[Rfam]
Shown here is a 114-nucleotide RNA sequence from Allobranchiibius huperziae, a member of the family "SAM (S-adenosyl methionine) riboswitch aptamer". SAM-IV is a mRNA element that regulates gene expression via direct sensing of S-adenosylmethionine (SAM or AdoMet). The base pairs follow the family's consensus structure, which is taken from published work.
RNA sequence: CGUCAAGAGUCCCAGUGCCAAGCCCCGGCUGACUGGGCGGCAACCCUCCACCGCGGUGGGGUGCCCCGGGUGAGGACAAGGCCGAUGUCGACAUGGCACCGGCAAGCGCGGGGU
Numbered sequence: 001c002g003u004c005a006a007g008a009g010u011c012c013c014a015g016u017g018c019c020a021a022g023c024c025c026c027g028g029c030u031g032a033c034u035g036g037g038c039g040g041c042a043a044c045c046c047u048c049c050a051c052c053g054c055g056g057u058g059g060g061g062u063g064c065c066c067c068g069g070g071u072g073a074g075g076a077c078a079a080g081g082c083c084g085a086u087g088u089c090g091a092c093a094u095g096g097c098a099c100c101g102g103c104a105a106g107c108g109c110g111g112g113g114u
Base pairs, nucleotide, nucleotide: 002077003076004075009038011037012036013035014034015033016032021030022029039065040064041063044061045060046059048056049055081103082102083101084100086098087097088096089095090094
Source information
Lineage of the source: Bacteria > Bacillati > Actinomycetes > Micrococcales > Allobranchiibius.